[Rfam]
RNA: mir-29 microRNA precursor family
Organism: Acipenser ruthenus
RNA sequence: GGACGACUGAUUUCCUCUGGUGUUCAGAGUCAGCGCUAGUUUCUAGCACCAUUUGAAAUCGGUUGUGC
Numbered sequence: 001g002g003a004c005g006a007c008u009g010a011u012u013u014c015c016u017c018u019g020g021u022g023u024u025c026a027g028a029g030u031c032a033g034c035g036c037u038a039g040u041u042u043c044u045a046g047c048a049c050c051a052u053u054u055g056a057a058a059u060c061g062g063u064u065g066u067g068c
Base pairs, nucleotide, nucleotide: 001068003066004065005063007062008061009060010059011058012057013056014055018051019050020049021048022047026044027043028042